The record is a 170-nucleotide RNA from Bacillus sp. FJAT-18017, which matches "glmS glucosamine-6-phosphate activated ribozyme aptamer" in Rfam. From the family's description: This entry contains a glucosamine-6-phosphate activated ribozyme that is found in the mRNA for GlmS. GlmS is an enzyme that uses fructose-6-phosphate and glutamine to generate glucosamine-6-phosphate. The ribozyme catalyses self cleavage of the glmS mRNA that is thought to regulate GlmS activity. The literature on the family includes a 2004 paper in Nature by Winkler et al., "Control of gene expression by a natural metabolite-responsive ribozyme".
RNA sequence: CACAUACUAAAAGCGCCAGGACUAAUCCGGAUCGGAAAAAGGGAUUAGUUGACGAGGUGGAGGUUUAUCGAAGUUUCGGCGGAUGCCUCCCAGCCGCAGCGCACGGCUGACUCUUGCUGCUUAAAAACAUCAGGGCAACUUGAUGGACAAAGAGCUGCAAGAUGCGCAAA
Numbered sequence: 001c002a003c004a005u006a007c008u009a010a011a012a013g014c015g016c017c018a019g020g021a022c023u024a025a026u027c028c029g030g031a032u033c034g035g036a037a038a039a040a041g042g043g044a045u046u047a048g049u050u051g052a053c054g055a056g057g058u059g060g061a062g063g064u065u066u067a068u069c070g071a072a073g074u075u076u077c078g079g080c081g082g083a084u085g086c087c088u089c090c091c092a093g094c095c096g097c098a099g100c101g102c103a104c105g106g107c108u109g110a111c112u113c114u115u116g117c118u119g120c121u122u123a124a125a126a127a128c129a130u131c132a133g134g135g136c137a138a139c140u141u142g143a144u145g146g147a148c149a150a151a152g153a154g155c156u157g158c159a160a161g162a163u164g165c166g167c168a169a170a
Base pairs, nucleotide, nucleotide: 020050021049022048023047024046025045026044027043028041059090060089061088062087063086068079069078070077071076091109092108093107094106095105096104114160115159116158117157119155120154128145129144130143131142132141133140134139